[Rfam]
RNA sequence: AGCAAUAGAAUAGGAAACUCAUGGGUGGUCAGCUCAUCCCCAAAAGAAAGGGGGUGGUGCUGUGACGGUAUUCGAAGCAUUAAUGUUUGCAUGUACGUUUGCAAGCUUCAUCAUUGCAAUCCUGUCCUUUAACCAAAGAAAAUAAUCCACCCUUGAGCUUGGCAGCCUGGUGGAUUAUUCCCAUUUUUUAAGGUGUCCCCCUUGCAGGGAACUUUCUAUUGCACUGACCGUUGGUGUUACAGCACCAGCG
Dot-bracket structure: .((((.(((........((((.(((.(((....(((.((((.........)))))))......(((((.(......(((........))).........((((...........)))).).)))))..................)))..))).))))..........((............))...............((.......)).....))).))))......(((((((((....)))))))))
Numbered sequence: 001a002g003c004a005a006u007a008g009a010a011u012a013g014g015a016a017a018c019u020c021a022u023g024g025g026u027g028g029u030c031a032g033c034u035c036a037u038c039c040c041c042a043a044a045a046g047a048a049a050g051g052g053g054g055u056g057g058u059g060c061u062g063u064g065a066c067g068g069u070a071u072u073c074g075a076a077g078c079a080u081u082a083a084u085g086u087u088u089g090c091a092u093g094u095a096c097g098u099u100u101g102c103a104a105g106c107u108u109c110a111u112c113a114u115u116g117c118a119a120u121c122c123u124g125u126c127c128u129u130u131a132a133c134c135a136a137a138g139a140a141a142a143u144a145a146u147c148c149a150c151c152c153u154u155g156a157g158c159u160u161g162g163c164a165g166c167c168u169g170g171u172g173g174a175u176u177a178u179u180c181c182c183a184u185u186u187u188u189u190a191a192g193g194u195g196u197c198c199c200c201c202u203u204g205c206a207g208g209g210a211a212c213u214u215u216c217u218a219u220u221g222c223a224c225u226g227a228c229c230g231u232u233g234g235u236g237u238u239a240c241a242g243c244a245c246c247a248g249c250g
Stems, first nucleotide, its partner, number of pairs: 002222004007217003018157004023152003027147003034057003038054004064126005070120001077090003100118004168183002199209002229250009